RNA sequence: GCAGGUGAAUACAACGUUGAGCGAUGAACGUUGUGCUCCAUAUCCAUAAUUGUAGUGUUUCUCAUAUUGAGGUUAUACAGAUUAAUUUACGUGUUGUGCCGAUGCUAAAAUUAGCAUCGGCCGUU
Numbered sequence: 001g002c003a004g005g006u007g008a009a010u011a012c013a014a015c016g017u018u019g020a021g022c023g024a025u026g027a028a029c030g031u032u033g034u035g036c037u038c039c040a041u042a043u044c045c046a047u048a049a050u051u052g053u054a055g056u057g058u059u060u061c062u063c064a065u066a067u068u069g070a071g072g073u074u075a076u077a078c079a080g081a082u083u084a085a086u087u088u089a090c091g092u093g094u095u096g097u098g099c100c101g102a103u104g105c106u107a108a109a110a111u112u113a114g115c116a117u118c119g120g121c122c123g124u125u
Base pairs, nucleotide, nucleotide: 001053002052003051004050007038008037010035011034012033013032014031015030016029017028018027069090071088072087098121099120100119101118102117103116104115105114106113107112